[Rfam]
RNA sequence: GGUCAUGAGUGACAGCUACGAAGCCCCGGCUUGCUGUCCGGCAACCCUCCGUCCGUGGCGGGGUGCCCCGGGUGAAGACCAGGCCGUAGACAAAAAGGUCUACGGCAAGCGCGGGCC
Numbered sequence: 001g002g003u004c005a006u007g008a009g010u011g012a013c014a015g016c017u018a019c020g021a022a023g024c025c026c027c028g029g030c031u032u033g034c035u036g037u038c039c040g041g042c043a044a045c046c047c048u049c050c051g052u053c054c055g056u057g058g059c060g061g062g063g064u065g066c067c068c069c070g071g072g073u074g075a076a077g078a079c080c081a082g083g084c085c086g087u088a089g090a091c092a093a094a095a096a097g098g099u100c101u102a103c104g105g106c107a108a109g110c111g112c113g114g115g116c117c
Stems, first nucleotide, its partner, number of pairs: 001080004009039001011038006022031002040067003045063003049058002083106009
Dot-bracket structure: ((((....(.((((((.....((......)).)))))))(((..(((.((......))..))).))).........))))..(((((((((......)))))))))...........